[Rfam]
RNA sequence: UGCCAUCGCUAAGUCAAGUCUACUUCCGUGACUUUGUUUCACGUUUUCUCUAUGGAAGUAUUGUCUGUUACAGCUUUGGCAUAUCAACGCUGGUCCGCGCCGAACUUCAUUCUGAAGCUAGGCUGAUUGGUUUUCGUUUUGAAAACUGGUCGUUAAGGACUAAGCAGUGUUCUGUUUUUGAGUUGAGUACUGCUUCGCCAUUGGCGACUUCGUAGCAGCGCUCUUAGUAACAUUUCACACAUCA
Numbered sequence: 001u002g003c004c005a006u007c008g009c010u011a012a013g014u015c016a017a018g019u020c021u022a023c024u025u026c027c028g029u030g031a032c033u034u035u036g037u038u039u040c041a042c043g044u045u046u047u048c049u050c051u052a053u054g055g056a057a058g059u060a061u062u063g064u065c066u067g068u069u070a071c072a073g074c075u076u077u078g079g080c081a082u083a084u085c086a087a088c089g090c091u092g093g094u095c096c097g098c099g100c101c102g103a104a105c106u107u108c109a110u111u112c113u114g115a116a117g118c119u120a121g122g123c124u125g126a127u128u129g130g131u132u133u134u135c136g137u138u139u140u141g142a143a144a145a146c147u148g149g150u151c152g153u154u155a156a157g158g159a160c161u162a163a164g165c166a167g168u169g170u171u172c173u174g175u176u177u178u179u180g181a182g183u184u185g186a187g188u189a190c191u192g193c194u195u196c197g198c199c200a201u202u203g204g205c206g207a208c209u210u211c212g213u214a215g216c217a218g219c220g221c222u223c224u225u226a227g228u229a230a231c232a233u234u235u236c237a238c239a240c241a242u243c244a
Stems, first nucleotide, its partner, number of pairs: 003079003017066002020063001022059006028042004090167003094163001099123003103119001105117004124152003130146007169238002174233002177230001185223004191217004196206003
The family of this 244-nucleotide sequence from Aspergillus versicolor is "Small nucleolar RNA snR191". The family's RNA type in Rfam is H/ACA-box small nucleolar RNA. The literature on the family includes a 2003 paper in RNA by Badis et al., "A snoRNA that guides the two most conserved pseudouridine modifications within rRNA confers a growth advantage in yeast". Pairs were carried over by alignment from the consensus structure, which was predicted with WAR. A search with the family's covariance model found it, with a score of 52 bits.